Shown here is a 302-nucleotide sequence from Trifolium subterraneum, a member of the family "Plant signal recognition particle RNA". By type it is a non-coding RNA gene. Pairs were carried over by alignment from the consensus structure, which is taken from published work. The organism belongs to Trifolium, within Eukaryota.
RNA sequence: ACCAAGUUGGGUAGUUCCAAUUUGUAACCCAAGUGGGGACAUCAAGGUGAUGGAACACAUCUUUGGCGUAUCAGGUUGGUCUCGUGGGUGCACCAUGUUGGCCUAAUCGCUCCAAGUUAAGAGUUAAGUCAUGGGACUUAGGUGAAAGCUUGGAUCGCUUGGCUCUUAGACAUGAGGGCACGACAUGAGGCUGAUUUCACAGAGCAACGAACACUUCCUUCUCCUAACAGUUGAGGGAUCACAUACAACUACAUUGUUGGUCCAAAAAUCAUGGUGAGCCAAGCCAUUGAACCAUCCUCAUU
Numbered sequence: 001a002c003c004a005a006g007u008u009g010g011g012u013a014g015u016u017c018c019a020a021u022u023u024g025u026a027a028c029c030c031a032a033g034u035g036g037g038g039a040c041a042u043c044a045a046g047g048u049g050a051u052g053g054a055a056c057a058c059a060u061c062u063u064u065g066g067c068g069u070a071u072c073a074g075g076u077u078g079g080u081c082u083c084g085u086g087g088g089u090g091c092a093c094c095a096u097g098u099u100g101g102c103c104u105a106a107u108c109g110c111u112c113c114a115a116g117u118u119a120a121g122a123g124u125u126a127a128g129u130c131a132u133g134g135g136a137c138u139u140a141g142g143u144g145a146a147a148g149c150u151u152g153g154a155u156c157g158c159u160u161g162g163c164u165c166u167u168a169g170a171c172a173u174g175a176g177g178g179c180a181c182g183a184c185a186u187g188a189g190g191c192u193g194a195u196u197u198c199a200c201a202g203a204g205c206a207a208c209g210a211a212c213a214c215u216u217c218c219u220u221c222u223c224c225u226a227a228c229a230g231u232u233g234a235g236g237g238a239u240c241a242c243a244u245a246c247a248a249c250u251a252c253a254u255u256g257u258u259g260g261u262c263c264a265a266a267a268a269u270c271a272u273g274g275u276g277a278g279c280c281a282a283g284c285c286a287u288u289g290a291a292c293c294a295u296c297c298u299c300a301u302u
Stems, first nucleotide, its partner, number of pairs: 003038001004023008028037003044301001046299002049296005056289002059287002062283006069276005075270001077268001078263002081260002084257003088254003099248001101246001104243001107237002110235003114231001116228004121223003127164005133158001135156002138153006172219001174217004184209001186207001191202003